[Rfam]
RNA sequence: AAGCGGGGACGACCCCGCCGCUCCAAUCGCCCGGGGACGGCCCCA
Numbered sequence: 001a002a003g004c005g006g007g008g009a010c011g012a013c014c015c016c017g018c019c020g021c022u023c024c025a026a027u028c029g030c031c032c033g034g035g036g037a038c039g040g041c042c043c044c045a
Base pairs, nucleotide, nucleotide: 003018004017005016006015007014008013033044034043035042036041